[Rfam]
A member of the RNA family "Mammalian CPEB3 ribozyme" from Crocodylus porosus, 73 nucleotides long. A search with the family's covariance model found it, with a score of 38 bits. Lineage of the source: Eukaryota > Chordata > Craniata > Crocodylidae > Crocodylus.
RNA sequence: ACAAGUUUCAGGACAUAGCAGAAGCACUCAUGGUGCGGCCCUGUCAGACUACAGUGAAUCUGUGAAUUUUCCU
Numbered sequence: 001a002c003a004a005g006u007u008u009c010a011g012g013a014c015a016u017a018g019c020a021g022a023a024g025c026a027c028u029c030a031u032g033g034u035g036c037g038g039c040c041c042u043g044u045c046a047g048a049c050u051a052c053a054g055u056g057a058a059u060c061u062g063u064g065a066a067u068u069u070u071c072c073u
Stems, first nucleotide, its partner, number of pairs: 011040002014037001017073002020070004024036003045062004050057001